[Rfam]
Shown here is a 56-nucleotide RNA sequence from Kamptonema sp. PCC 6506, a member of the family "Nitrogen stress-induced RNA 1". NCBI's taxonomy places the organism under Bacteria, Bacillati, Oscillatoriales, Microcoleaceae, Kamptonema. The pairing is the family consensus, mapped onto this sequence. By type it is a small RNA.
RNA sequence: GAGUAGAUGCACCCUGAUUAAUGAACCCUAACCAAUUGCGGUCAGGGUUUUUUUAU
Numbered sequence: 001g002a003g004u005a006g007a008u009g010c011a012c013c014c015u016g017a018u019u020a021a022u023g024a025a026c027c028c029u030a031a032c033c034a035a036u037u038g039c040g041g042u043c044a045g046g047g048u049u050u051u052u053u054u055a056u
Stems, first nucleotide, its partner, number of pairs: 003012002025048005031042003

A search with the family's covariance model found it, with a score of 44 bits.